[Rfam]
RNA sequence: CCGGGACAAAGCAACCUCCCGGUCAGGCGGGUUCCGCCCAAGCGUUGC
Numbered sequence: 001c002c003g004g005g006a007c008a009a010a011g012c013a014a015c016c017u018c019c020c021g022g023u024c025a026g027g028c029g030g031g032u033u034c035c036g037c038c039c040a041a042g043c044g045u046u047g048c
Stems, first nucleotide, its partner, number of pairs: 001022006011048005026038005
The family of this 48-nucleotide sequence from Novosphingobium arvoryzae is "chrB-b RNA". Pairs were carried over by alignment from the consensus structure, which is taken from published work. Rfam classes the family as a cis-regulatory element.